[Rfam]
Rfam assigns this 73-nucleotide RNA sequence from Pterocles gutturalis to the family "Small nucleolar RNA SNORD26". Gene Ontology terms of the family: RNA processing and nucleolus. Pairs were carried over by alignment from the consensus structure, which was predicted with PFOLD. It scores 53 bits against the family's covariance model. Clan: SNORD26 clan.

RNA sequence: CCGCGGGGAUGAUCCCCCUGAACUCUCUCUUGCCGAUGGCUCCCUGGGGAAACUCGUGACUCUCCUGAGCGGC
Numbered sequence: 001c002c003g004c005g006g007g008g009a010u011g012a013u014c015c016c017c018c019u020g021a022a023c024u025c026u027c028u029c030u031u032g033c034c035g036a037u038g039g040c041u042c043c044c045u046g047g048g049g050a051a052a053c054u055c056g057u058g059a060c061u062c063u064c065c066u067g068a069g070c071g072g073c
Stems, first nucleotide, its partner, number of pairs: 001072004